[Rfam]
Background:
This 85-nucleotide RNA from Scyliorhinus torazame belongs to the Rfam family "mir-135 microRNA precursor family". On this family, see Lagos-Quintana et al., Curr Biol 2002: "Identification of tissue-specific microRNAs from mouse". It scores 77 bits against the family's covariance model.

RNA sequence: UCGCUGCUGUGCCCUAUGGCUUUUUAUUCCUAUGUGAUAGUAUUUUGGCCUCACAUAGGGGUGAAAGCCAUGGGAUACAGGGUGA
Numbered sequence: 001u002c003g004c005u006g007c008u009g010u011g012c013c014c015u016a017u018g019g020c021u022u023u024u025u026a027u028u029c030c031u032a033u034g035u036g037a038u039a040g041u042a043u044u045u046u047g048g049c050c051u052c053a054c055a056u057a058g059g060g061g062u063g064a065a066a067g068c069c070a071u072g073g074g075a076u077a078c079a080g081g082g083u084g085a
Stems, first nucleotide, its partner, number of pairs: 002084004007080005013074011026062012
The family's consensus secondary structure was predicted with PFOLD. Taxonomically the source falls in Scyliorhinus (Eukaryota, Opisthokonta, Eumetazoa, Bilateria). Its family is annotated with RISC complex and gene silencing by miRNA in the Gene Ontology.